[Rfam]
RNA sequence: GUUUGUUAUAAUGACGACUUGUCUGAAAACUCCUUUCUGGGAAGCCGGACAAUGUCUGAAACCUGACAAGU
Numbered sequence: 001g002u003u004u005g006u007u008a009u010a011a012u013g014a015c016g017a018c019u020u021g022u023c024u025g026a027a028a029a030c031u032c033c034u035u036u037c038u039g040g041g042a043a044g045c046c047g048g049a050c051a052a053u054g055u056c057u058g059a060a061a062c063c064u065g066a067c068a069a070g071u
Stems, first nucleotide, its partner, number of pairs: 001071005016056003019052007031042003
Selenocysteine insertion sequence 1: a 71-nucleotide sequence from Scophthalmus maximus.
The family's consensus secondary structure is taken from published work.
It scores 36 bits against the family's covariance model.
It is annotated as a cis-regulatory element.
About the family: The incorporation of selenocysteine into a protein sequence is directed by an in-frame UGA codon (usually a stop codon) within the coding region of the mRNA. Selenoprotein mRNAs contain a conserved secondary structure in the 3' UTR that is required for the distinction of UGA stop from UGA selenocysteine. The selenocysteine insertion sequence (SECIS) is around 60 nt in length and adopts a hairpin structure which is sufficiently well-defined and conserved to act as a computational screen for selenoprotein genes.